[Rfam]
RNA sequence: UUACUCCCUCUGUCCCAUAAUGUAAGACGUUUUUUGAUAUUAGUGUAGUAUCAAAAUGCGUCUUACAUUAUGGGACGGAGGGAGUAC
Numbered sequence: 001u002u003a004c005u006c007c008c009u010c011u012g013u014c015c016c017a018u019a020a021u022g023u024a025a026g027a028c029g030u031u032u033u034u035u036g037a038u039a040u041u042a043g044u045g046u047a048g049u050a051u052c053a054a055a056a057u058g059c060g061u062c063u064u065a066c067a068u069u070a071u072g073g074g075a076c077g078g079a080g081g082g083a084g085u086a087c
Stems, first nucleotide, its partner, number of pairs: 003085003007081005013075005019069012032056010
MIR1120/MIR1122 microRNA precursor family: an 87-nucleotide sequence from Aegilops tauschii.
The family has 6 seed sequences and 44,765 matches in Rfam 15.1.
Rfam links the family to the GO terms RISC complex and miRNA-mediated post-transcriptional gene silencing.
The family's consensus secondary structure was predicted with RNAalifold.
The match comes from Rfam's covariance-model search (90 bits).
The organism belongs to Aegilops tauschii, within Eukaryota.